[Rfam]
RNA sequence: UCUGUUAAACUAUACAAGUUAAUGUGGGCUAAAGAAGUUCAAUAUUAAUCCCUGAGACUUUUACCUUUGCUCAGGCAUACUACACUGCGGGUAGAUUUCAUGUCCUACCACGCAUAAAGGAGAAUUCAUG
Numbered sequence: 001u002c003u004g005u006u007a008a009a010c011u012a013u014a015c016a017a018g019u020u021a022a023u024g025u026g027g028g029c030u031a032a033a034g035a036a037g038u039u040c041a042a043u044a045u046u047a048a049u050c051c052c053u054g055a056g057a058c059u060u061u062u063a064c065c066u067u068u069g070c071u072c073a074g075g076c077a078u079a080c081u082a083c084a085c086u087g088c089g090g091g092u093a094g095a096u097u098u099c100a101u102g103u104c105c106u107a108c109c110a111c112g113c114a115u116a117a118a119g120g121a122g123a124a125u126u127c128a129u130g
Stems, first nucleotide, its partner, number of pairs: 018049008051075006062122001064120004086114004
Description:
A member of the RNA family "PreQ1-II (pre queuosine) riboswitch aptamer" from Lactovum miscens, 130 nucleotides long. About the family: preQ1-II riboswitch was first reported for Weinberg et al. 2007 it was recognised in Streptococcaceae and Lactococcus families in 5' untranslated regions of genes of a membrane protein classified as COG4708 or DUF988. For this family Rfam cites "Structural determinants for ligand capture by a class II preQ1 riboswitch" (Kang et al., Proc Natl Acad Sci U S A, 2014). The organism belongs to Lactovum, within Bacteria.